Shown here is an 82-nucleotide sequence from Fusibacter sp. 3D3, a member of the family "skipping-rope RNA". A search with the family's covariance model found it, with a score of 69 bits. The family's RNA type in Rfam is small RNA. Taxonomically the source falls in Fusibacter (Bacteria, Bacillati, Bacillota, Clostridia).
RNA sequence: AUUAGUUGAGGGCAGAAAGGGUAGCUGCCACGCCACUUGUUGGUCUUUAAAGAGAUGUAGGAGUGCCAUCCUACCAAUUAAU
Numbered sequence: 001a002u003u004a005g006u007u008g009a010g011g012g013c014a015g016a017a018a019g020g021g022u023a024g025c026u027g028c029c030a031c032g033c034c035a036c037u038u039g040u041u042g043g044u045c046u047u048u049a050a051a052g053a054g055a056u057g058u059a060g061g062a063g064u065g066c067c068a069u070c071c072u073a074c075c076a077a078u079u080a081a082u
Stems, first nucleotide, its partner, number of pairs: 001082008011029005020067004031052001032044004057074005